The record is a 192-nucleotide RNA sequence from Niallia nealsonii, which matches "Group II catalytic intron D1-D4-5" in Rfam. A search with the family's covariance model found it, with a score of 162 bits.

RNA sequence: GAGAACUAAGAAACCAGAUGAGUCGAAUGAGGAGGUAACGCUCUGAAAGGCUCGACCUAAUACUCCGAAUAGCUUCAUUUUGUGCAAUCAAAAUGUGGUUAUAAGCUCGGUGAAGUCAGUUGAAUAUCACCCUAAUUAUAGGAAAGCGAAGUGGAGGCAUUUUGUGUGAUAGAUAGACUGGGGUUCUACAAA
Numbered sequence: 001g002a003g004a005a006c007u008a009a010g011a012a013a014c015c016a017g018a019u020g021a022g023u024c025g026a027a028u029g030a031g032g033a034g035g036u037a038a039c040g041c042u043c044u045g046a047a048a049g050g051c052u053c054g055a056c057c058u059a060a061u062a063c064u065c066c067g068a069a070u071a072g073c074u075u076c077a078u079u080u081u082g083u084g085c086a087a088u089c090a091a092a093a094u095g096u097g098g099u100u101a102u103a104a105g106c107u108c109g110g111u112g113a114a115g116u117c118a119g120u121u122g123a124a125u126a127u128c129a130c131c132c133u134a135a136u137u138a139u140a141g142g143a144a145a146g147c148g149a150a151g152u153g154g155a156g157g158c159a160u161u162u163u164g165u166g167u168g169a170u171a172g173a174u175a176g177a178c179u180g181g182g183g184u185u186c187u188a189c190a191a192a
Stems, first nucleotide, its partner, number of pairs: 019054006032044001034042002055184004065110004069102006076095007117180005125171006131142003146165008

On this family, see Bonen and Vogel, Trends Genet 2001: "The ins and outs of group II introns". Pairs were carried over by alignment from the consensus structure. The family has 139 seed sequences and 720 matches in Rfam 15.1. Rfam describes the family as follows. Group II introns are found in rRNA, tRNA and mRNA of organelles in fungi, plants and protists, and also in mRNA in bacteria.